Annotation
The record is a 63-nucleotide sequence from Xiphophorus maculatus, which matches "Selenocysteine insertion sequence 1" in Rfam.

RNA sequence: UUUACUUAAUGAAGAGACUCCUGGAAACCAUUUUGUGUAGGAAGUUUCUGAUGCAGAUGUAAA
Numbered sequence: 001u002u003u004a005c006u007u008a009a010u011g012a013a014g015a016g017a018c019u020c021c022u023g024g025a026a027a028c029c030a031u032u033u034u035g036u037g038u039a040g041g042a043a044g045u046u047u048c049u050g051a052u053g054c055a056g057a058u059g060u061a062a063a
Base pairs, nucleotide, nucleotide: 001063002062003061004060005059014048015047016046017045018044019043021041022040029037030036031035
Gene Ontology term of the family: selenocysteine incorporation. For this family Rfam cites "A novel RNA structural motif in the selenocysteine insertion element of eukaryotic selenoprotein mRNAs" (Walczak et al., RNA, 1996). Pairs were carried over by alignment from the consensus structure, which is taken from published work. Rfam classes the family as a cis-regulatory element. The source organism's lineage runs through Eukaryota, Actinopterygii, Teleostei, Ovalentaria and Xiphophorus.